Rfam assigns this 106-nucleotide sequence from Panicum virgatum to the family "Small nucleolar RNA Z152/R70/R12/".
For this family Rfam cites "Identification of 66 box C/D snoRNAs in Arabidopsis thaliana: extensive gene duplications generated multiple isoforms predicting new ribosomal RNA 2'-O-methylation sites" (Barneche et al., J Mol Biol, 2001).
It scores 53 bits against the family's covariance model.
By type it is a C/D-box small nucleolar RNA.
Its family is annotated with RNA processing and nucleolus in the Gene Ontology.
[Rfam]
RNA sequence: AAUGUGAUGAUGAACUGAGUGAAAUAUGGUUUUGGCAGUGGUGGCAUUGGUGGUGCUGCCGUGAGCCUGUCAACCAAAAAAACGACUUCUCUUUGCACUCAGCAUC
Number, nucleotide and partner (000 for none) at each position: 001a000002a105003u104004g103005u102006g000007a000008u000009g000010a000011u000012g000013a000014a000015c000016u000017g000018a000019g000020u000021g000022a000023a000024a000025u000026a000027u000028g000029g000030u000031u000032u000033u000034g000035g000036c000037a000038g000039u000040g000041g000042u000043g000044g000045c000046a000047u000048u000049g000050g000051u000052g000053g000054u000055g000056c000057u000058g000059c000060c000061g000062u000063g000064a000065g000066c000067c000068u000069g000070u000071c000072a000073a000074c000075c000076a000077a000078a000079a000080a000081a000082a000083c000084g000085a000086c000087u000088u000089c000090u000091c000092u000093u000094u000095g000096c000097a000098c000099u000100c000101a000102g005103c004104a003105u002106c000
About this RNA:
The source organism's lineage runs through Eukaryota, Spermatophyta, Liliopsida, Petrosaviidae and Panicum sect. Hiantes.